The family of this 181-nucleotide RNA from Thermocoleostomius sinensis is "Guanidine-I riboswitch aptamer". Rfam links the family to the GO term regulation of gene expression. Rfam describes the family as follows. This family represents a conserved RNA structure found upstream of the ykkC and yxkD genes in Bacillus subtilis and related genes in other bacteria.
[Rfam]
RNA sequence: AUGAAUUGCUUCUAGGGUUCCGUUUCAACUGGUUAAGGAUCUUGUUGCGAUCUUUCGUUGCUGUUAACUUUGGUAACUGCUAAGUUGAAGGUCUGGUCCGAGAGAAGCAAGCUAGCUUAGAAAGCCACACUGCUUUAUUCAAGGUUUGCUAGCCACACGGCGGGAAAAAAACCCGGGAGGA
Numbered sequence: 001a002u003g004a005a006u007u008g009c010u011u012c013u014a015g016g017g018u019u020c021c022g023u024u025u026c027a028a029c030u031g032g033u034u035a036a037g038g039a040u041c042u043u044g045u046u047g048c049g050a051u052c053u054u055u056c057g058u059u060g061c062u063g064u065u066a067a068c069u070u071u072g073g074u075a076a077c078u079g080c081u082a083a084g085u086u087g088a089a090g091g092u093c094u095g096g097u098c099c100g101a102g103a104g105a106a107g108c109a110a111g112c113u114a115g116c117u118u119a120g121a122a123a124g125c126c127a128c129a130c131u132g133c134u135u136u137a138u139u140c141a142a143g144g145u146u147u148g149c150u151a152g153c154c155a156c157a158c159g160g161c162g163g164g165a166a167a168a169a170a171a172c173c174c175g176g177g178a179g180g181a
Base pairs, nucleotide, nucleotide: 007109008108009107010106011105012104015099016098020096021095022093023090024089025088026087027086028085029084030083111153112152113151114150115149116148156176158179162174163173164172